This 132-nucleotide sequence from Otolemur garnettii belongs to the Rfam family "Small nucleolar RNA SNORA64/SNORA10 family". Its family is annotated with nucleolus and RNA processing in the Gene Ontology. On this family, see Narayanan et al., EMBO J 1999: "Nucleolar localization signals of box H/ACA small nucleolar RNAs". Rfam 15.1 lists 703 matches to the family in 311 species. About the family: This family belongs to the H/ACA class of small nucleolar RNAs (snoRNAs) which act as guides in the the modification of uridines to pseudouridines. It is annotated as an H/ACA-box small nucleolar RNA.

RNA sequence: ACCCUCCCAGCUCUGCAUGGUCACACCUGGCUUUACUCUUACCACUUUCCUAAUGUGGAGAGGGGGGAUAGGUCUCCUCAGGACCUGGGUUGGCCUUCCAGCGGCCUCUCUUUCCCUGAGGGUCCAGCAGAG
Numbered sequence: 001a002c003c004c005u006c007c008c009a010g011c012u013c014u015g016c017a018u019g020g021u022c023a024c025a026c027c028u029g030g031c032u033u034u035a036c037u038c039u040u041a042c043c044a045c046u047u048u049c050c051u052a053a054u055g056u057g058g059a060g061a062g063g064g065g066g067g068a069u070a071g072g073u074c075u076c077c078u079c080a081g082g083a084c085c086u087g088g089g090u091u092g093g094c095c096u097u098c099c100a101g102c103g104g105c106c107u108c109u110c111u112u113u114c115c116c117u118g119a120g121g122g123u124c125c126a127g128c129a130g131a132g
Stems, first nucleotide, its partner, number of pairs: 002066005008060001011058002014055002019043003023039001025037001074122003078118001080117003087111003092106004